[Rfam]
RNA sequence: AAAGUUUGACAGACAAUCGCUGGUGACUUGGUCACGAGAGGAAAGUCCGGGCUCCAUAGGGCAGGGUGCUGGAUAAUGUCCAGUCAGCGCGAGCUGAAGGAUAGUGCCACAGAAAUGGACCGCCGAUGGCUGCUUCGGCAGCACAGGCAAGGGUGGAACCGUGGUGUAAGAGACCACGAGGAGCGUUGGUGACUUCGUUCCUGGUAAACCCCAUCUGGAGCAAGACCUAAUGAGAUGCAUGCCCGCAAGGGCAGCCUUAGCCCGAGGUGCGUCUGGGUUGGUCGCUUGAACCGUGCAGCAAUGUACGGUCUAGAUAGAUGAUUGUCACUUUGUAGUGGAAGGGUAGCUCCCGUAAUACCACGAUCAGUACAGAACCCGGCUUACGGCAAACUUUCCGG
Number, nucleotide and partner (000 for none) at each position: 001a394002a393003a392004g391005u390006u389007u388008g387009a000010c385011a000012g326013a325014c324015a323016a322017u321018c320019g000020c038021u037022g000023g035024u034025g033026a032027c031028u000029u000030g000031g027032u026033c025034a024035c023036g000037a021038g020039a000040g000041g000042a000043a382044a381045g380046u000047c379048c378049g377050g376051g375052c220053u219054c218055c217056a000057u000058a000059g263060g262061g261062c260063a000064g216065g215066g214067u213068g212069c083070u082071g081072g080073a079074u000075a000076a000077u000078g000079u073080c072081c071082a070083g069084u098085c096086a095087g094088c093089g000090c000091g000092a000093g088094c087095u086096g085097a000098a084099g211100g210101a000102u000103a000104g209105u208106g205107c204108c203109a000110c000111a000112g000113a000114a000115a000116u000117g000118g000119a000120c152121c151122g148123c147124c146125g000126a000127u000128g000129g142130c141131u140132g139133c138134u000135u000136c000137g000138g133139c132140a131141g130142c129143a000144c000145a000146g124147g123148c122149a000150a000151g121152g120153g000154u000155g000156g000157a000158a000159c000160c178161g177162u176163g175164g174165u173166g000167u000168a000169a000170g000171a000172g000173a165174c164175c163176a162177c161178g160179a000180g201181g200182a199183g198184c197185g196186u000187u000188g193189g000190u000191g000192a000193c188194u000195u000196c185197g184198u183199u182200c181201c180202u000203g108204g107205u106206a000207a000208a105209c104210c100211c099212c068213a067214u066215c065216u064217g055218g054219a053220g052221c000222a000223a000224g283225a282226c281227c280228u000229a000230a000231u000232g000233a274234g273235a272236u271237g270238c269239a000240u000241g000242c000243c000244c000245g000246c000247a000248a000249g000250g000251g000252c000253a000254g268255c267256c266257u265258u264259a000260g062261c061262c060263c059264g258265a257266g256267g255268u254269g238270c237271g236272u235273c234274u233275g000276g000277g000278u000279u000280g227281g226282u225283c224284g000285c000286u000287u000288g000289a000290a309291c308292c307293g306294u305295g304296c303297a302298g000299c000300a000301a000302u297303g296304u295305a294306c293307g292308g291309u290310c000311u000312a000313g000314a000315u000316a000317g000318a000319u000320g018321a017322u016323u015324g014325u013326c012327a000328c000329u000330u000331u000332g000333u000334a000335g000336u000337g000338g000339a000340a000341g000342g000343g000344u000345a000346g000347c000348u000349c000350c000351c000352g000353u000354a000355a000356u000357a000358c000359c000360a000361c000362g000363a000364u000365c000366a000367g000368u000369a000370c000371a000372g000373a000374a000375c051376c050377c049378g048379g047380c045381u044382u043383a000384c000385g010386g000387c008388a007389a006390a005391c004392u003393u002394u001395c000396c000397g000398g000
Bacterial RNase P class A: a 398-nucleotide RNA sequence from Paenibacillus sp. KS1. It is annotated as a ribozyme. Pairs were carried over by alignment from the consensus structure, which is taken from published work. Taxonomically the source falls in Paenibacillus (Bacteria, Bacillati, Bacillota, Caryophanales). The match comes from Rfam's covariance-model search (274 bits).